[Rfam]
RNA sequence: CUCUUAUCAAGAGAGGUGGAGGGAUAGGGCCCGAUGAAACCCGGCAACCUGUAUUUUCAAGGUGCCAAUUCCUGUAGAUAGAUUAUCUACAAGAUAAGAG
Dot-bracket structure: ((((((((....(.(((...(((...[[[)))......))))((((.((((......)).))))))...(]]].((((((...))))))..)))))))))
RNA: SAM riboswitch aptamer (S box leader)